[Rfam]
Nucleotides: 223
Base pairs, nucleotide, nucleotide: 012037013036014035015034016033019031020030023191024190025189026188039091040090041089042088045086046085047084048083049081050080051076052075053074055072056071057070058069059068060067061066111217112215114214115213116212117211118210119209132208133207134206135205136204137203138165139164140163143159144158145157146156170202171201172200173199174198175197176196177195178194179193180192
Number, partner (000 for none) and nucleotide at each position: 001000a002000a003000a004000g005000u006000u007000c008000g009000a010000u011000a012037c013036u014035g015034g016033u017000a018000a019031g020030a021000a022000a023191u024190g025189g026188c027000g028000a029000a030020u031019c032000a033016a034015c035014c036013a037012g038000a039091c040090c041089c042088c043000g044000a045086g046085u047084c048083a049081u050080g051076c052075a053074u054000g055072u056071u057070g058069c059068a060067c061066c062000g063000u064000g065000a066061g067060g068059u069058g070057c071056a072055g073000g074053g075052u076051g077000a078000a079000g080050c081049g082000u083048u084047g085046g086045c087000a088042g089041g090040g091039g092000a093000a094000a095000u096000c097000g098000a099000u100000g101000g102000g103000c104000c105000a106000g107000c108000c109000a110000u111217u112215g113000a114214g115213c116212c117211g118210c119209g120000u121000a122000a123000u124000c125000a126000c127000a128000a129000g130000u131000u132208c133207g134206g135205g136204a137203u138165g139164c140163c141000g142000a143159u144158g145157c146156u147000g148000u149000u150000a151000a152000g153000c154000g155000a156146a157145g158144c159143a160000g161000a162000a163140g164139g165138c166000a167000a168000c169000a170202c171201g172200g173199a174198g175197c176196a177195u178194g179193g180192c181000g182000u183000u184000u185000u186000a187000c188026g189025c190024c191023a192180g193179u194178c195177a196176u197175g198174c199173u200172c201171u202170g203137a204136u205135c206134c207133c208132g209119c210118g211117c212116g213115g214114u215112c216000g217111g218000a219000g220000a221000c222000c223000c

Notes
The record is a 223-nucleotide RNA from Pseudomonas benzenivorans, which matches "Group II catalytic intron D1-D4-6" in Rfam. Rfam links the family to the GO term Group II intron splicing. The match comes from Rfam's covariance-model search (185 bits). About the family: Group II introns are found in rRNA, tRNA and mRNA of organelles in fungi, plants and protists, and also in mRNA in bacteria. The source organism's lineage runs through Bacteria, Pseudomonadota, Pseudomonadales, Pseudomonadaceae and Pseudomonas.